[Rfam]
RNA sequence: GGGGGCUAACCCUGGCUAGGGAACUCGGCAAAUUAGCCCCGUAACUUAGGGAUAAGGGGUGCCUACCGCGGCGCGAAACGUCGCAGUAGGUCGCAGUGACAAGGGGGACCUGACUGUUUAAUAAAAACAUAGGUUCCCGCUAGCCCGUAAGGGUGUGUACGGGAGCUGAAUCCUGGCCACUGGCGGUAAGUGAAAUCCGGGUCCAACCGGACGAAGCUCCGCUAAAGGCCGGGGGUAACUCUGACCCUCUCAAGGUAGCCAAAUGCCUUGCCGGGCAAGUUCCGGCGCGCAUGAAUGGAUCAACGCGGUCCCCACUGUCCCAGCCAGGGGCCCCGUGAACGCCCAGAGUGGGUGCACAGUCCCGCAA
Numbered sequence: 001g002g003g004g005g006c007u008a009a010c011c012c013u014g015g016c017u018a019g020g021g022a023a024c025u026c027g028g029c030a031a032a033u034u035a036g037c038c039c040c041g042u043a044a045c046u047u048a049g050g051g052a053u054a055a056g057g058g059g060u061g062c063c064u065a066c067c068g069c070g071g072c073g074c075g076a077a078a079c080g081u082c083g084c085a086g087u088a089g090g091u092c093g094c095a096g097u098g099a100c101a102a103g104g105g106g107g108a109c110c111u112g113a114c115u116g117u118u119u120a121a122u123a124a125a126a127a128c129a130u131a132g133g134u135u136c137c138c139g140c141u142a143g144c145c146c147g148u149a150a151g152g153g154u155g156u157g158u159a160c161g162g163g164a165g166c167u168g169a170a171u172c173c174u175g176g177c178c179a180c181u182g183g184c185g186g187u188a189a190g191u192g193a194a195a196u197c198c199g200g201g202u203c204c205a206a207c208c209g210g211a212c213g214a215a216g217c218u219c220c221g222c223u224a225a226a227g228g229c230c231g232g233g234g235g236u237a238a239c240u241c242u243g244a245c246c247c248u249c250u251c252a253a254g255g256u257a258g259c260c261a262a263a264u265g266c267c268u269u270g271c272c273g274g275g276c277a278a279g280u281u282c283c284g285g286c287g288c289g290c291a292u293g294a295a296u297g298g299a300u301c302a303a304c305g306c307g308g309u310c311c312c313c314a315c316u317g318u319c320c321c322a323g324c325c326a327g328g329g330g331c332c333c334c335g336u337g338a339a340c341g342c343c344c345a346g347a348g349u350g351g352g353u354g355c356a357c358a359g360u361c362c363c364g365c366a367a
Stems, first nucleotide, its partner, number of pairs: 001334004010329008019320003036060005045050001061091006068084006092096001104313007111305002115129003132167008140157001143154004170300004175230003180227002182223005189218003196211005231249006250254001270286006348365005

About this RNA: The family of this 367-nucleotide part of an RNA from Sulfodiicoccus acidiphilus is "Archaeal large subunit ribosomal RNA". On this family, see Yusupov et al., Science 2001: "Crystal structure of the ribosome at 5.5 A resolution". A search with the family's covariance model found it, with a score of 2753 bits.